[Rfam]
RNA sequence: GUCGACUCUGGAGAGAGGCAAAAGCCCACCGACGGAGAGAGAAAACUCUCAGGUGAAAGGACAGAGGGGCGACA
Numbered sequence: 001g002u003c004g005a006c007u008c009u010g011g012a013g014a015g016a017g018g019c020a021a022a023a024g025c026c027c028a029c030c031g032a033c034g035g036a037g038a039g040a041g042a043a044a045a046c047u048c049u050c051a052g053g054u055g056a057a058a059g060g061a062c063a064g065a066g067g068g069g070c071g072a073c074a
Stems, first nucleotide, its partner, number of pairs: 003069001006066005017026003028054003031050002035048003
RNA: Glycine riboswitch aptamer